Source information
This 124-nucleotide RNA from Streptomyces alkaliterrae belongs to the Rfam family "Streptomyces-metK RNA". The family's RNA type in Rfam is small RNA. NCBI's taxonomy places the organism under Bacteria, Bacillati, Actinomycetota, Kitasatosporales, Streptomyces. It scores 85 bits against the family's covariance model. The family's consensus secondary structure is taken from published work.
RNA sequence: GUGAGAAACCCUUGACCGUCGCUGUAGUGCGUACGGAUAAACUGUCCGAGGAUCGUUUGCUCCAGGGCGCAGCCCCUAAGCGGUCCACCAAUGAUCAGCCAGCAGCCGCUGCAACCCCAGGGAG
Numbered sequence: 001g002u003g004a005g006a007a008a009c010c011c012u013u014g015a016c017c018g019u020c021g022c023u024g025u026a027g028u029g030c031g032u033a034c035g036g037a038u039a040a041a042c043u044g045u046c047c048g049a050g051g052a053u054c055g056u057u058u059g060c061u062c063c064a065g066g067g068c069g070c071a072g073c074c075c076c077u078a079a080g081c082g083g084u085c086c087a088c089c090a091a092u093g094a095u096c097a098g099c100c101a102g103c104a105g106c107c108g109c110u111g112c113a114a115c116c117c118c119a120g121g122g123a124g
Stems, first nucleotide, its partner, number of pairs: 050086006062080001065077003100111004